[Rfam]
RNA: Y RNA
RNA sequence: AGCUGGUGCAAGUACAGUGGUGUCAUAACAGUUACAGAUUUCUUCCCUCUUUCUCCACUCCCACUGCUUCACUUGACUAGCCUGAA
Numbered sequence: 001a002g003c004u005g006g007u008g009c010a011a012g013u014a015c016a017g018u019g020g021u022g023u024c025a026u027a028a029c030a031g032u033u034a035c036a037g038a039u040u041u042c043u044u045c046c047c048u049c050u051u052u053c054u055c056c057a058c059u060c061c062c063a064c065u066g067c068u069u070c071a072c073u074u075g076a077c078u079a080g081c082c083u084g085a086a
Stems, first nucleotide, its partner, number of pairs: 002081006010074002016065005022060001030048002034044001